This 130-nucleotide sequence from Papaver somniferum belongs to the Rfam family "Small nucleolar RNA snoR77".
Its family is annotated with nucleolus and RNA processing in the Gene Ontology.
For this family Rfam cites "Experimental RNomics: identification of 140 candidates for small non-messenger RNAs in the plant Arabidopsis thaliana" (Marker et al., Curr Biol, 2002).
Pairs were carried over by alignment from the consensus structure, which was predicted with WAR.
Taxonomically the source falls in Papaver (Eukaryota, Streptophytina, Embryophyta, Tracheophyta).
It scores 107 bits against the family's covariance model.
[Rfam]
RNA sequence: AGGCAGCCCCUUUGCGAAUUAAAUACAAUGGUAAAGAGGGUGUUGUUCUACUCGGAAAUUAAUUCUUCGGCUCUUCAGAUUUGCUGAGAAUUCAUUUCUCUGAAGCUGGUCUAGUAAGCUCAAGUACAUU
Numbered sequence: 001a002g003g004c005a006g007c008c009c010c011u012u013u014g015c016g017a018a019u020u021a022a023a024u025a026c027a028a029u030g031g032u033a034a035a036g037a038g039g040g041u042g043u044u045g046u047u048c049u050a051c052u053c054g055g056a057a058a059u060u061a062a063u064u065c066u067u068c069g070g071c072u073c074u075u076c077a078g079a080u081u082u083g084c085u086g087a088g089a090a091u092u093c094a095u096u097u098c099u100c101u102g103a104a105g106c107u108g109g110u111c112u113a114g115u116a117a118g119c120u121c122a123a124g125u126a127c128a129u130u
Base pairs, nucleotide, nucleotide: 002044003043004042005041007040008039010036011035012034013033014032015031017029065124066123067122070119071118072117077112078111079110080109081108083106084105085104088098089097090096